The family of this 82-nucleotide sequence from Tyrannus savana is "mir-202 microRNA precursor family". The source organism's lineage runs through Eukaryota, Vertebrata, Tetrapoda, Neoaves and Tyrannus. Its family is annotated with RISC complex and miRNA-mediated post-transcriptional gene silencing in the Gene Ontology. A search with the family's covariance model found it, with a score of 56 bits. The family's consensus secondary structure was predicted with RNAalifold.

RNA sequence: UUGUUCCUUUUUCCUGGGCAUAUGACUCUUUAAAAAGAGUCAUUGGUUCUAAAGAUUUAUGGGGCAUGGGAAAAUAGGGCAA
Numbered sequence: 001u002u003g004u005u006c007c008u009u010u011u012u013c014c015u016g017g018g019c020a021u022a023u024g025a026c027u028c029u030u031u032a033a034a035a036a037g038a039g040u041c042a043u044u045g046g047u048u049c050u051a052a053a054g055a056u057u058u059a060u061g062g063g064g065c066a067u068g069g070g071a072a073a074a075u076a077g078g079g080c081a082a
Stems, first nucleotide, its partner, number of pairs: 010073007018065002021061003025057001027055006